[Rfam]
RNA: msiK RNA
Organism: Naumannella halotolerans
RNA sequence: GACCGUCACCAUCCACUACGGAUCGUCGGGCACGUACCUGCCCGUGGAAGGAACAGACA
Numbered sequence: 001g002a003c004c005g006u007c008a009c010c011a012u013c014c015a016c017u018a019c020g021g022a023u024c025g026u027c028g029g030g031c032a033c034g035u036a037c038c039u040g041c042c043c044g045u046g047g048a049a050g051g052a053a054c055a056g057a058c059a
Stems, first nucleotide, its partner, number of pairs: 009051002012048004027044006
Dot-bracket structure: ........((.((((...........((((((......)))))))))).))........